[Rfam]
Description
Rfam assigns this 400-nucleotide sequence from Rasiella rasia to the family "transfer-messenger RNA". Rfam's curators write: Bacterial tmRNA, also known as 10Sa RNA or SsrA, is named for its dual tRNA and mRNA-like properties. Rfam classes the family as a non-coding RNA gene.
RNA sequence: GGGGCCGACUGGUUUUGACAGCGGGUUUUGUGGUAUGGUAAGCAUGUAGAGCGCUGGGAAACAGCUCUUAAAUCUCAUUUUUCACACUUUUUAAACGGCGAGAAUAACUACGCCCUAGCUGCAUAAUCUGAAUUAUAGUAAGAUUACGCCUCGGCCUACAAGGUAGGCAAGCAGGAAGUCACUCAAACACCUUGGUUUACGGUUUUUGAUAUAGUGACUUCGUAAAAGUAAACCUAUUGGGAAUAGUGCCUUGAUAUUCCUGAGACAUCUAAGUGAGGAUAAGGAGUGCGUUGGUAGUUUUUGACCGGCAAUCUCUCGAAAAUUGAAACAGAAACUAAACAUGUAGAAAGCUGUAACGCAGCACGUUUGGACGAGGGUUCGAAUCCCUCCGGCUCCACGA
Numbered sequence: 001g002g003g004g005c006c007g008a009c010u011g012g013u014u015u016u017g018a019c020a021g022c023g024g025g026u027u028u029u030g031u032g033g034u035a036u037g038g039u040a041a042g043c044a045u046g047u048a049g050a051g052c053g054c055u056g057g058g059a060a061a062c063a064g065c066u067c068u069u070a071a072a073u074c075u076c077a078u079u080u081u082u083c084a085c086a087c088u089u090u091u092u093a094a095a096c097g098g099c100g101a102g103a104a105u106a107a108c109u110a111c112g113c114c115c116u117a118g119c120u121g122c123a124u125a126a127u128c129u130g131a132a133u134u135a136u137a138g139u140a141a142g143a144u145u146a147c148g149c150c151u152c153g154g155c156c157u158a159c160a161a162g163g164u165a166g167g168c169a170a171g172c173a174g175g176a177a178g179u180c181a182c183u184c185a186a187a188c189a190c191c192u193u194g195g196u197u198u199a200c201g202g203u204u205u206u207u208g209a210u211a212u213a214g215u216g217a218c219u220u221c222g223u224a225a226a227a228g229u230a231a232a233c234c235u236a237u238u239g240g241g242a243a244u245a246g247u248g249c250c251u252u253g254a255u256a257u258u259c260c261u262g263a264g265a266c267a268u269c270u271a272a273g274u275g276a277g278g279a280u281a282a283g284g285a286g287u288g289c290g291u292u293g294g295u296a297g298u299u300u301u302u303g304a305c306c307g308g309c310a311a312u313c314u315c316u317c318g319a320a321a322a323u324u325g326a327a328a329c330a331g332a333a334a335c336u337a338a339a340c341a342u343g344u345a346g347a348a349a350g351c352u353g354u355a356a357c358g359c360a361g362c363a364c365g366u367u368u369g370g371a372c373g374a375g376g377g378u379u380c381g382a383a384u385c386c387c388u389c390c391g392g393c394u395c396c397a398c399g400a
Base pairs, nucleotide, nucleotide: 001396002395003394004393005392006391007390019369020368021366022365023364025362026361027360030359031358032357034355035354036353037352038351039350043343044342045341046340047339048068049067050066051065052064055084056083057082058081059080060079061078121149122148124146125145126144127143128142177219178218179217180216181215182214184208185207186206187205191202192201195233196232197231198230199229200228237263238262239261240260241259242258243257244256245255249278250277251276252275283314284313286312287311293306294305295304297335298334299333300332301331302330303329373389374388375387376386377385